[Rfam]
RNA sequence: AGCGAGGGACGACCCUCGCGCCUUUCCGCACCCCCGCCGGGACGACCCGG
Numbered sequence: 001a002g003c004g005a006g007g008g009a010c011g012a013c014c015c016u017c018g019c020g021c022c023u024u025u026c027c028g029c030a031c032c033c034c035c036g037c038c039g040g041g042a043c044g045a046c047c048c049g050g
Stems, first nucleotide, its partner, number of pairs: 002019007037050005

Rfam assigns this 50-nucleotide sequence from Aureimonas jatrophae to the family "Guanidine-II riboswitch aptamer (mini-ykkC)".